[Rfam]
RNA: mir-184 microRNA precursor family
Organism: Spodoptera litura
RNA sequence: AUUGUGCCGUGCCCUUGUCAUUCUUCUUGCCCGUGUGCUUUCAUACUACUGGACGGAGAACUGAUAAGGGCAUGUCCAAUA
Numbered sequence: 001a002u003u004g005u006g007c008c009g010u011g012c013c014c015u016u017g018u019c020a021u022u023c024u025u026c027u028u029g030c031c032c033g034u035g036u037g038c039u040u041u042c043a044u045a046c047u048a049c050u051g052g053a054c055g056g057a058g059a060a061c062u063g064a065u066a067a068g069g070g071c072a073u074g075u076c077c078a079a080u081a
Stems, first nucleotide, its partner, number of pairs: 012070009021060006030052002